tRNA: a 71-nucleotide RNA sequence from Cladophialophora immunda. The match comes from Rfam's covariance-model search (57 bits). The family's RNA type in Rfam is transfer RNA. The family's consensus secondary structure is taken from published work. Rfam links the family to the GO term triplet codon-amino acid adaptor activity.

Nucleotides: 071
Stems, first nucleotide, its partner, number of pairs: 001070007010024004026042005047063005
Number, partner (000 for none) and nucleotide at each position: 001070g002069c003068a004067c005066u006065g007064g008000u009000g010024g011023u012022u013021u014000a015000g016000u017000g018000g019000u020000a021013a022012a023011a024010u025000c026042c027041a028040u029039c030038g031000u032000u033000g034000c035000c036000a037000u038030c039029g040028a041027u042026g043000g044000g045000c046000c047063c048062c049061g050060u051059g052000u053000u054000c055000g056000a057000u058000u059051c060050a061049c062048g063047g064007c065006c066005a067004g068003u069002g070001c071000a